[Rfam]
RNA sequence: AAGUUGUCUGUGCUGAAUCCUCCUCGAGAGGUACGGGGGAAUGUACCGCUUGUCAGCGGCGGGUGCAUCUCUUACGAGAGGGACAUCCUUCGGUCCUAACCUGGAACUAACCCCGGAAGCGAGUGAAGGAAAGGAG
Dot-bracket structure: ..........((((....((((.....))))..(((((....((..............))(((.....(((....)))..((((........))))...)))........)))))..))))...............
RNA: c-di-AMP riboswitch aptamer (ydaO/yuaA leader)